The family of this 71-nucleotide RNA from Acidipila rosea is "Fluoride riboswitch aptamer (crcB RNA motif)".
Rfam links the family to the GO terms positive regulation of gene expression and response to fluoride.
The family's consensus secondary structure is taken from published work.
NCBI's taxonomy places the organism under Bacteria, Pseudomonadati, Terriglobia, Terriglobales, Acidipila.
[Rfam]
RNA sequence: AACAAAUUAGGCGAUGGAGUUCGCCACCAAACGCACGACCUUCGGUUGACGCUAAUGACUCCUACAUUUUU
Numbered sequence: 001a002a003c004a005a006a007u008u009a010g011g012c013g014a015u016g017g018a019g020u021u022c023g024c025c026a027c028c029a030a031a032c033g034c035a036c037g038a039c040c041u042u043c044g045g046u047u048g049a050c051g052c053u054a055a056u057g058a059c060u061c062c063u064a065c066a067u068u069u070u071u
Base pairs, nucleotide, nucleotide: 010025011024012023013022016062017061018060019059020058021057033052034051